[Rfam]
RNA sequence: UGCUGUACAUGAUGAUUUGAUUAAAUCAAUGGGAAUCUCUCUGAAUAAGGAUGAGGGACAGCUUUCACACUGAUGCAGUG
Numbered sequence: 001u002g003c004u005g006u007a008c009a010u011g012a013u014g015a016u017u018u019g020a021u022u023a024a025a026u027c028a029a030u031g032g033g034a035a036u037c038u039c040u041c042u043g044a045a046u047a048a049g050g051a052u053g054a055g056g057g058a059c060a061g062c063u064u065u066c067a068c069a070c071u072g073a074u075g076c077a078g079u080g
Base pairs, nucleotide, nucleotide: 001080002079003078004077005076006075007074